[Rfam]
RNA: RT-6 RNA
RNA sequence: UACUCUAAAUGUAGAUUUAGAGGUACUGUAUUUCUGUCAAGUAUUUAUAUACGAUUUCUCGCAAGAAAUCCACU
Numbered sequence: 001u002a003c004u005c006u007a008a009a010u011g012u013a014g015a016u017u018u019a020g021a022g023g024u025a026c027u028g029u030a031u032u033u034c035u036g037u038c039a040a041g042u043a044u045u046u047a048u049a050u051a052c053g054a055u056u057u058c059u060c061g062c063a064a065g066a067a068a069u070c071c072a073c074u
Stems, first nucleotide, its partner, number of pairs: 003022008053069001056067004